[Rfam]
RNA sequence: UAAUGAUAAAGGCAAAUCCGUUGAAAGAUGGAGACGCAAAGCUAAAGGGGCUAAGAUCAGUUAAGUGAUUACGCCAGCCAGUUACCGAU
Numbered sequence: 001u002a003a004u005g006a007u008a009a010a011g012g013c014a015a016a017u018c019c020g021u022u023g024a025a026a027g028a029u030g031g032a033g034a035c036g037c038a039a040a041g042c043u044a045a046a047g048g049g050g051c052u053a054a055g056a057u058c059a060g061u062u063a064a065g066u067g068a069u070u071a072c073g074c075c076a077g078c079c080a081g082u083u084a085c086c087g088a089u
Base pairs, nucleotide, nucleotide: 012037013036017032018031019030020029021028022027040083041082042081043080047079048078049075050074051073056069057068058067059066